Shown here is an 86-nucleotide RNA sequence from Kingdonia uniflora, a member of the family "Small nucleolar RNA Z221/R21b". Pairs were carried over by alignment from the consensus structure, which was predicted with WAR. Its family is annotated with nucleolus and RNA processing in the Gene Ontology.
[Rfam]
RNA sequence: AAGUUGCUAUGAUGAUAUAACUGUCAUGCACCACUCUGAUGUUAUUCAGUGAUGAUAAAGACUUACCCAUUUAUUUCUGAGCACUU
Numbered sequence: 001a002a003g004u005u006g007c008u009a010u011g012a013u014g015a016u017a018u019a020a021c022u023g024u025c026a027u028g029c030a031c032c033a034c035u036c037u038g039a040u041g042u043u044a045u046u047c048a049g050u051g052a053u054g055a056u057a058a059a060g061a062c063u064u065a066c067c068c069a070u071u072u073a074u075u076u077c078u079g080a081g082c083a084c085u086u
Stems, first nucleotide, its partner, number of pairs: 001086004